[Rfam]
RNA sequence: ACGAGGUGCCUUCCUGAGCUGGCUGAUUGAAGCGUAGAGAACUCCAAUCUUCCCAGGUCAGAGGGCACCUCGCCUUAUUUCACAACACAUCCAUCAGAUUUCCGCCGUGGAUCCAG
Numbered sequence: 001a002c003g004a005g006g007u008g009c010c011u012u013c014c015u016g017a018g019c020u021g022g023c024u025g026a027u028u029g030a031a032g033c034g035u036a037g038a039g040a041a042c043u044c045c046a047a048u049c050u051u052c053c054c055a056g057g058u059c060a061g062a063g064g065g066c067a068c069c070u071c072g073c074c075u076u077a078u079u080u081c082a083c084a085a086c087a088c089a090u091c092c093a094u095c096a097g098a099u100u101u102c103c104g105c106c107g108u109g110g111a112u113c114c115a116g
Stems, first nucleotide, its partner, number of pairs: 002072012015060003019056004025049003029045001031043002097113003101110002
Description:
Shown here is a 116-nucleotide RNA sequence from Nonomuraea solani, a member of the family "Actinobacteria sRNA Ms_IGR-7". On this family, see Li et al., RNA 2013: "Identification of small RNAs in Mycobacterium smegmatis using heterologous Hfq". The base pairs follow the family's consensus structure. Rfam 15.1 lists 463 matches to the family in 194 species. Lineage of the source: Bacteria > Actinomycetes > Streptosporangiales > Streptosporangiaceae > Nonomuraea.